[Rfam]
RNA sequence: UAGGAUUGUCCAAAGUCAAACAUUUUUAACUUUGACCAAGUCUGAAAAAAAUGUGCUAAGAUCUACAAUAUCAAAUAUAUAUACAUAUUAUAAAAUAAUUUUUAUAAUGAAUCUAAUGACGUAAAUUUGAUGUUGUAGAUGUUGAUAUAUUUUUCUAUAAACUUGGUCAAACUUAACGAAGUUUGACUCAGGACAAACCCAA
Dot-bracket structure: .....((((.(..((((((((.((.(....(((((.......((.(((((.(((...((.(((((((...((((((................................................))))))...))))))).)).)))..))))).)).........)))))....).)).))))))))..).))))......
Numbered sequence: 001u002a003g004g005a006u007u008g009u010c011c012a013a014a015g016u017c018a019a020a021c022a023u024u025u026u027u028a029a030c031u032u033u034g035a036c037c038a039a040g041u042c043u044g045a046a047a048a049a050a051a052u053g054u055g056c057u058a059a060g061a062u063c064u065a066c067a068a069u070a071u072c073a074a075a076u077a078u079a080u081a082u083a084c085a086u087a088u089u090a091u092a093a094a095a096u097a098a099u100u101u102u103u104a105u106a107a108u109g110a111a112u113c114u115a116a117u118g119a120c121g122u123a124a125a126u127u128u129g130a131u132g133u134u135g136u137a138g139a140u141g142u143u144g145a146u147a148u149a150u151u152u153u154u155c156u157a158u159a160a161a162c163u164u165g166g167u168c169a170a171a172c173u174u175a176a177c178g179a180a181g182u183u184u185g186a187c188u189c190a191g192g193a194c195a196a197a198c199c200c201a202a
Stems, first nucleotide, its partner, number of pairs: 006196004011191001014188008023179002026176001031171005043157002046154005052147003058143002061140007071130006
Shown here is a 202-nucleotide RNA sequence from Aegilops tauschii, a member of the family "MIR1435 microRNA precursor family". Gene Ontology terms of the family: miRNA-mediated post-transcriptional gene silencing and RISC complex. The base pairs follow the family's consensus structure, which was predicted with RNAalifold. It scores 94 bits against the family's covariance model.